[Rfam]
RNA sequence: GGAUAAUACUGUUUUGCUAUUUUCGGUCAAUAACACAAUUACACGUGAAAAAAUUAUCUUACAUAUUAUUGCGUAAUUUACCGAAAAUAGCAAAAAGUGCUAUCC
Numbered sequence: 001g002g003a004u005a006a007u008a009c010u011g012u013u014u015u016g017c018u019a020u021u022u023u024c025g026g027u028c029a030a031u032a033a034c035a036c037a038a039u040u041a042c043a044c045g046u047g048a049a050a051a052a053a054u055u056a057u058c059u060u061a062c063a064u065a066u067u068a069u070u071g072c073g074u075a076a077u078u079u080a081c082c083g084a085a086a087a088u089a090g091c092a093a094a095a096a097g098u099g100c101u102a103u104c105c
Base pairs, nucleotide, nucleotide: 002104003103004102005101012095013094014093015092016091017090018089019088020087022085023084024083025082026081027080029078030077031076033074034073036071037070038069039068041066043064045062046061047060048059050057